[Rfam]
The record is a 122-nucleotide RNA from Oncorhynchus tshawytscha, which matches "Small nucleolar RNA SNORA71" in Rfam. The base pairs follow the family's consensus structure, which was predicted with PFOLD. About the family: The members of this family belong to the H/ACA class of snoRNAs which bind a number of proteins (including dyskerin, Gar1p and Nop10p) to form snoRNP complexes. This class of snoRNAs are thought to guide the sites of modification of uridines to pseudouridines by forming direct base pairing interactions with substrate RNAs. This family includes U71 (SNORA71), ACA39 (SNORA39) and ACA60 (SNORA60). U71 and ACA60 are predicted to guide the pseudouridylation of U406 and U1004 in 18S rRNA respectively. There is currently no target RNA identified for ACA39. For this family Rfam cites "The family of box ACA small nucleolar RNAs is defined by an evolutionarily conserved secondary structure and ubiquitous sequence elements essential for RNA accumulation" (Ganot et al., Genes Dev, 1997). Rfam classes the family as an H/ACA-box small nucleolar RNA. The organism belongs to Oncorhynchus, within Eukaryota.
RNA sequence: CCCUGUAUCGAAUGUGGCCAUGGUGUUGAUAGGUCAUUGAUAGUACAAGGAAAAGUGAAAUGAGAGCCUUUCCCGUGUUUGAUGGGUCCUCAAUCCCAACUGAACCCUGGUUCUCUCAGACA
Dot-bracket structure: ((.(((((.....((((((..(.......).)))))).....))))).))..........((((((..........(((((.((((........))))..))))).......))))))....